Overview: A member of the RNA family "T-box leader" from Brevibacillus fulvus, 240 nucleotides long. NCBI's taxonomy places the organism under Bacteria, Bacillati, Bacillota, Paenibacillaceae, Brevibacillus. The family's consensus secondary structure is taken from published work. By type it is a cis-regulatory leader. Gene Ontology term of the family: tRNA binding.
RNA sequence: GGGAAGACGAUGAACGGGACGAGUAAGCGAGGGAACACUGUGCAGAGAGCCGGGAAGAUGGUGAGAUCCUGGUCAGUUGUAGUCGCUGAAUAUCACCCGGGAGUCCAACAGCUGAACGUCUGGAGCAAGCAGACUAUUAAGUGCGCGCAUCAUUCACGUUACGAAUGGCAAAAGUGAACAAACCCUUGUUGCGGUUUGUUCAUUAGGGUGGUACCGCGGGAGUCUCUUCUCGUCCCUAAG
Numbered sequence: 001g002g003g004a005a006g007a008c009g010a011u012g013a014a015c016g017g018g019a020c021g022a023g024u025a026a027g028c029g030a031g032g033g034a035a036c037a038c039u040g041u042g043c044a045g046a047g048a049g050c051c052g053g054g055a056a057g058a059u060g061g062u063g064a065g066a067u068c069c070u071g072g073u074c075a076g077u078u079g080u081a082g083u084c085g086c087u088g089a090a091u092a093u094c095a096c097c098c099g100g101g102a103g104u105c106c107a108a109c110a111g112c113u114g115a116a117c118g119u120c121u122g123g124a125g126c127a128a129g130c131a132g133a134c135u136a137u138u139a140a141g142u143g144c145g146c147g148c149a150u151c152a153u154u155c156a157c158g159u160u161a162c163g164a165a166u167g168g169c170a171a172a173a174g175u176g177a178a179c180a181a182a183c184c185c186u187u188g189u190u191g192c193g194g195u196u197u198g199u200u201c202a203u204u205a206g207g208g209u210g211g212u213a214c215c216g217c218g219g220g221a222g223u224c225u226c227u228u229c230u231c232g233u234c235c236c237u238a239a240g
Stems, first nucleotide, its partner, number of pairs: 007104002015099004026087005038076003049073006107138002110135002113132001141157002177200007205237004216233005